[Rfam]
RNA: Bacterial large signal recognition particle RNA
Organism: Gottschalkia purinilytica
RNA sequence: CCAUGCUAGAUGGGGAGGUAGCGGUGCCCUGUAACCUGCAAUCCGCUAUAGCAGGAUUGAAUUCCUAGCUGAGGCAUGAUUAUUGUAGGGUCUGCCCUAGACAAGUGGCGUUGACGAUCGGGUCCUACGCAACAGGAGCCCAUGAACUCCGUCAGAUCCGGAAGGAAGCAGCGGUAAGUGGUUACUUCUUGUGUGCCGUAGGGUUGCCUGGUUUGAGUUAACUAUUUAGGUAACGCUUAUGGGAUCAUGUCGAAGCUAGGUGCAUGG
Numbered sequence: 001c002c003a004u005g006c007u008a009g010a011u012g013g014g015g016a017g018g019u020a021g022c023g024g025u026g027c028c029c030u031g032u033a034a035c036c037u038g039c040a041a042u043c044c045g046c047u048a049u050a051g052c053a054g055g056a057u058u059g060a061a062u063u064c065c066u067a068g069c070u071g072a073g074g075c076a077u078g079a080u081u082a083u084u085g086u087a088g089g090g091u092c093u094g095c096c097c098u099a100g101a102c103a104a105g106u107g108g109c110g111u112u113g114a115c116g117a118u119c120g121g122g123u124c125c126u127a128c129g130c131a132a133c134a135g136g137a138g139c140c141c142a143u144g145a146a147c148u149c150c151g152u153c154a155g156a157u158c159c160g161g162a163a164g165g166a167a168g169c170a171g172c173g174g175u176a177a178g179u180g181g182u183u184a185c186u187u188c189u190u191g192u193g194u195g196c197c198g199u200a201g202g203g204u205u206g207c208c209u210g211g212u213u214u215g216a217g218u219u220a221a222c223u224a225u226u227u228a229g230g231u232a233a234c235g236c237u238u239a240u241g242g243g244a245u246c247a248u249g250u251c252g253a254a255g256c257u258a259g260g261u262g263c264a265u266g267g
Stems, first nucleotide, its partner, number of pairs: 001267006009058003012030004017025001019023001035055005064260007073251005081244001083242007093232002097229005105222002107219003116213008124202006130193002133191005138183001140181004149174004157166003